[Rfam]
RNA sequence: UCUGGACCCGUCCUCGCACGGGUGGCUAUGCCGGGCGCCUAUCCCUCGGCCAAUC
Numbered sequence: 001u002c003u004g005g006a007c008c009c010g011u012c013c014u015c016g017c018a019c020g021g022g023u024g025g026c027u028a029u030g031c032c033g034g035g036c037g038c039c040u041a042u043c044c045c046u047c048g049g050c051c052a053a054u055c
Stems, first nucleotide, its partner, number of pairs: 006023006012016001030050006